[Rfam]
RNA: mraW RNA
Organism: Alloactinosynnema sp. L-07
RNA sequence: GAAGACGCGGGUGCCGUGAGGCCUCGGUCCGCUCGCUUUCGGCCCUGGCGCACCUUCCCCGGUGCCAGGUUCGACGAGCGGGCGGGGACCUGGCGGCACCCGGCCGUCUGGCU
Numbered sequence: 001g002a003a004g005a006c007g008c009g010g011g012u013g014c015c016g017u018g019a020g021g022c023c024u025c026g027g028u029c030c031g032c033u034c035g036c037u038u039u040c041g042g043c044c045c046u047g048g049c050g051c052a053c054c055u056u057c058c059c060c061g062g063u064g065c066c067a068g069g070u071u072c073g074a075c076g077a078g079c080g081g082g083c084g085g086g087g088a089c090c091u092g093g094c095g096g097c098a099c100c101c102g103g104c105c106g107u108c109u110g111g112c113u
Stems, first nucleotide, its partner, number of pairs: 010100007020090002023087003027083008039074004044069008